[Rfam]
RNA sequence: AAGUAAAGGAGCAACAAGUUUUUUCUUGUUUUAUCAAGAGGGUUAAUAUUGCUCCUUUACU
Numbered sequence: 001a002a003g004u005a006a007a008g009g010a011g012c013a014a015c016a017a018g019u020u021u022u023u024u025c026u027u028g029u030u031u032u033a034u035c036a037a038g039a040g041g042g043u044u045a046a047u048a049u050u051g052c053u054c055c056u057u058u059a060c061u
Stems, first nucleotide, its partner, number of pairs: 005058010016047001021042001023040006
A member of the RNA family "Plastid-psbA-4 3UTR RNA", 61 nucleotides long.
Plastid psbA-4 is a non-coding RNA (ncRNA) present in plastids. It was identified in inverted repeat sequences in the 3 prime untranslate region (3UTR) of photosystem II quinone-binding protein (psbA).
The family's consensus secondary structure was predicted with LocARNA.